Overview:
The family of this 55-nucleotide sequence from Leptolyngbya boryana is "Nitrogen stress-induced RNA 1".

RNA sequence: UGGUAGAUGCACCCUGACUUAAUUCCCUAGAGGCAAGCCCUCUAGGGUUUUUUAU
Numbered sequence: 001u002g003g004u005a006g007a008u009g010c011a012c013c014c015u016g017a018c019u020u021a022a023u024u025c026c027c028u029a030g031a032g033g034c035a036a037g038c039c040c041u042c043u044a045g046g047g048u049u050u051u052u053u054a055u
Base pairs, nucleotide, nucleotide: 002013003012004011025047026046027045028044029043030042031041032040033039
Overview
The pairing is the family consensus, mapped onto this sequence. NCBI's taxonomy places the organism under Bacteria, Bacillati, Cyanophyceae, Leptolyngbya, Leptolyngbya boryana. A search with the family's covariance model found it, with a score of 50 bits.